[Rfam]
RNA sequence: AAUGCUGUGAUGAGGUGAGGCACCGGUUGGUGUUUUAGGGCAGUGGAAGAGGCAUAGACUGUCUCUCCGUGAGCUCAAUUUAUAAACGACUUCUCCUUCCACUGAGCAUU
Numbered sequence: 001a002a003u004g005c006u007g008u009g010a011u012g013a014g015g016u017g018a019g020g021c022a023c024c025g026g027u028u029g030g031u032g033u034u035u036u037a038g039g040g041c042a043g044u045g046g047a048a049g050a051g052g053c054a055u056a057g058a059c060u061g062u063c064u065c066u067c068c069g070u071g072a073g074c075u076c077a078a079u080u081u082a083u084a085a086a087c088g089a090c091u092u093c094u095c096c097u098u099c100c101a102c103u104g105a106g107c108a109u110u
Stems, first nucleotide, its partner, number of pairs: 001110005